[Rfam]
RNA sequence: AAGGGUGCUGUGAUUAUAAAAAAAUUCCUCGUUCUGACUGCUAAUAAUCAUUAAGCAUGACAGACUCCUCAUCACCCAUAGAAUAUGAGCACC
Numbered sequence: 001a002a003g004g005g006u007g008c009u010g011u012g013a014u015u016a017u018a019a020a021a022a023a024a025u026u027c028c029u030c031g032u033u034c035u036g037a038c039u040g041c042u043a044a045u046a047a048u049c050a051u052u053a054a055g056c057a058u059g060a061c062a063g064a065c066u067c068c069u070c071a072u073c074a075c076c077c078a079u080a081g082a083a084u085a086u087g088a089g090c091a092c093c
Stems, first nucleotide, its partner, number of pairs: 003093002006091002

Record summary: The family of this 93-nucleotide sequence from Vanilla planifolia is "Small nucleolar RNA snoR8a". It scores 82 bits against the family's covariance model. Pairs were carried over by alignment from the consensus structure, which was predicted with WAR. For this family Rfam cites "Multiple snoRNA gene clusters from Arabidopsis" (Brown et al., RNA, 2001). NCBI's taxonomy places the organism under Eukaryota, Streptophyta, Spermatophyta, Petrosaviidae, Vanilla.